int-alpA RNA: a 67-nucleotide sequence from Desulfosarcina widdelii. Rfam's curators write: Acidobacteria (1 example), Planctomycetes (1 example), Proteobacteria. The match comes from Rfam's covariance-model search (45 bits). The organism belongs to Desulfosarcina, within Bacteria. By type it is a small RNA.

[Rfam]
RNA sequence: GCCCUGGAUAGGCUGAUCACCGAAAAGGCGGCGCCUCACCGCCCUGCCAGGGCUUAACAUAUGAGGA
Numbered sequence: 001g002c003c004c005u006g007g008a009u010a011g012g013c014u015g016a017u018c019a020c021c022g023a024a025a026a027g028g029c030g031g032c033g034c035c036u037c038a039c040c041g042c043c044c045u046g047c048c049a050g051g052g053c054u055u056a057a058c059a060u061a062u063g064a065g066g067a
Base pairs, nucleotide, nucleotide: 001053002052003051004050005049006048007047011021012020027043028042029041030040031039034066035065036064037063038062